[Rfam]
RNA sequence: GUUUACCGCUAGGGGAGCCCGGACGAUGCCCGGGCUGAGAGGGCGCCGGCGGCGGCGUCGACCCUUUGCACCUGAUCUGGAGGAAUGCCAGCGGAGGAAAGCGGAUAACGCGAGUU
Numbered sequence: 001g002u003u004u005a006c007c008g009c010u011a012g013g014g015g016a017g018c019c020c021g022g023a024c025g026a027u028g029c030c031c032g033g034g035c036u037g038a039g040a041g042g043g044c045g046c047c048g049g050c051g052g053c054g055g056c057g058u059c060g061a062c063c064c065u066u067u068g069c070a071c072c073u074g075a076u077c078u079g080g081a082g083g084a085a086u087g088c089c090a091g092c093g094g095a096g097g098a099a100a101g102c103g104g105a106u107a108a109c110g111c112g113a114g115u116u
Stems, first nucleotide, its partner, number of pairs: 006104005011065004017035005042059007071097003077091004
Rfam assigns this 116-nucleotide RNA from Heliomicrobium modesticaldum to the family "TPP riboswitch aptamer (THI element)". Gene Ontology term of the family: thiamine pyrophosphate binding. It scores 65 bits against the family's covariance model.